[Rfam]
RNA: Bradyrhizobiaceae sRNA BjrC68
RNA sequence: CCCGACUUCCGGACCGGGCACCGCCCGCUCCGCCAGGGCUCCGGCGCAAGCUGGAGCCCUUUUUUUGUU
Numbered sequence: 001c002c003c004g005a006c007u008u009c010c011g012g013a014c015c016g017g018g019c020a021c022c023g024c025c026c027g028c029u030c031c032g033c034c035a036g037g038g039c040u041c042c043g044g045c046g047c048a049a050g051c052u053g054g055a056g057c058c059c060u061u062u063u064u065u066u067g068u069u
Stems, first nucleotide, its partner, number of pairs: 010032004015027004035060008044051002